The record is a 142-nucleotide sequence from Desulforudis audaxviator, which matches "c-di-AMP riboswitch aptamer (ydaO/yuaA leader)" in Rfam.
[Rfam]
RNA sequence: AUUCAUAGAGCGCUGAGUUCCCGGGAAGAGUCCGGGAAGCGGGGGAACCACUUACUGGGGUGAAUCCCGGCAUACCGCCGGAUAGGGUUAUCUUUCGACCCGAACCCGUCAGCUAACCUCGCAAGCGUGGGAAGAUGGCCGG
Numbered sequence: 001a002u003u004c005a006u007a008g009a010g011c012g013c014u015g016a017g018u019u020c021c022c023g024g025g026a027a028g029a030g031u032c033c034g035g036g037a038a039g040c041g042g043g044g045g046a047a048c049c050a051c052u053u054a055c056u057g058g059g060g061u062g063a064a065u066c067c068c069g070g071c072a073u074a075c076c077g078c079c080g081g082a083u084a085g086g087g088u089u090a091u092c093u094u095u096c097g098a099c100c101c102g103a104a105c106c107c108g109u110c111a112g113c114u115a116a117c118c119u120c121g122c123a124a125g126c127g128u129g130g131g132a133a134g135a136u137g138g139c140c141g142g
Stems, first nucleotide, its partner, number of pairs: 011127004018038008039122006049057002058107003067081003085101004